[Rfam]
RNA: UnaL2 LINE 3' element
Organism: Coregonus sp. 'balchen'
RNA sequence: UGCACGCUUGACUGUAAGUCACUUUGGAUAAAAGCAUCUGUUAAAUGGCAUAUA
Numbered sequence: 001u002g003c004a005c006g007c008u009u010g011a012c013u014g015u016a017a018g019u020c021a022c023u024u025u026g027g028a029u030a031a032a033a034g035c036a037u038c039u040g041u042u043a044a045a046u047g048g049c050a051u052a053u054a
Base pairs, nucleotide, nucleotide: 013043014041015040016039022034023033024032025031